[Rfam]
RNA sequence: CUUCAGCGAGCCCAACAGGAGCGGACGAUCGGCCGGCCGGUCCUGGCCGUAGGUGGCCAGCAGCGCCUGUGCCUC
Number, nucleotide and partner (000 for none) at each position: 001c000002u000003u000004c000005a000006g000007c000008g000009a000010g000011c000012c000013c000014a000015a000016c024017a000018g000019g000020a000021g000022c000023g000024g016025a000026c000027g000028a000029u000030c000031g000032g070033c069034c000035g000036g000037c000038c065039g064040g000041u000042c000043c060044u059045g058046g000047c056048c055049g054050u000051a000052g000053g000054u049055g048056g047057c000058c045059a044060g043061c000062a000063g000064c039065g038066c000067c000068u000069g033070u032071g000072c000073c000074u000075c000
This 75-nucleotide RNA from Micromonospora pisi belongs to the Rfam family "ASpks TB sRNA". It is annotated as an antisense RNA. The family's consensus secondary structure is taken from published work. A reference for the family is Arnvig and Young (2009), "Identification of small RNAs in Mycobacterium tuberculosis", Mol Microbiol. It scores 79 bits against the family's covariance model. Taxonomically the source falls in Micromonospora (Bacteria, Actinomycetota, Actinomycetes, Micromonosporaceae). Rfam 15.1 lists 9,052 matches to the family in 683 species.